[Rfam]
RNA sequence: CGGGGCGUAGCUCAGUUUGGUAGAGCGCUACCUUGGGGUGGUAGAGGCCGCACGUUCAAAUCGUGUCGCUCCGA
Numbered sequence: 001c002g003g004g005g006c007g008u009a010g011c012u013c014a015g016u017u018u019g020g021u022a023g024a025g026c027g028c029u030a031c032c033u034u035g036g037g038g039u040g041g042u043a044g045a046g047g048c049c050g051c052a053c054g055u056u057c058a059a060a061u062c063g064u065g066u067c068g069c070u071c072c073g074a
Stems, first nucleotide, its partner, number of pairs: 001073007010026004028044005050066005
Source information: This 74-nucleotide RNA from Heliomicrobium modesticaldum belongs to the Rfam family "tRNA". The family's consensus secondary structure is taken from published work. By type it is a transfer RNA.